[Rfam]
RNA sequence: UGGAGGAGGAAGGCAAAUGUGAAACAUUUCUAUUAAUGCCUUCCGACGAAUUGCCGCCGAACCAGAGGUGAGGGGGCGUUACCAUUG
Numbered sequence: 001u002g003g004a005g006g007a008g009g010a011a012g013g014c015a016a017a018u019g020u021g022a023a024a025c026a027u028u029u030c031u032a033u034u035a036a037u038g039c040c041u042u043c044c045g046a047c048g049a050a051u052u053g054c055c056g057c058c059g060a061a062c063c064a065g066a067g068g069u070g071a072g073g074g075g076g077c078g079u080u081a082c083c084a085u086u087g
Stems, first nucleotide, its partner, number of pairs: 008044006015029005053077003057073002061069002
RNA: GA-cis RNA